RNA sequence: CCUGUGGAGUGUUAUACCAAAUGCGAGUAGCUACGGCAAAAGCAGACACCCUGAAACAGGAA
Numbered sequence: 001c002c003u004g005u006g007g008a009g010u011g012u013u014a015u016a017c018c019a020a021a022u023g024c025g026a027g028u029a030g031c032u033a034c035g036g037c038a039a040a041a042g043c044a045g046a047c048a049c050c051c052u053g054a055a056a057c058a059g060g061a062a
Stems, first nucleotide, its partner, number of pairs: 001060005009049005022044003030037002
Record summary:
Shown here is a 62-nucleotide sequence from Paenibacillus sp. yr247, a member of the family "RAGATH-18 RNA". Rfam describes the family as follows. Actinobacteria, Firmicutes, Fusobacteria, Thermotogae (1 example). The family's consensus secondary structure is taken from published work. A search with the family's covariance model found it, with a score of 70 bits.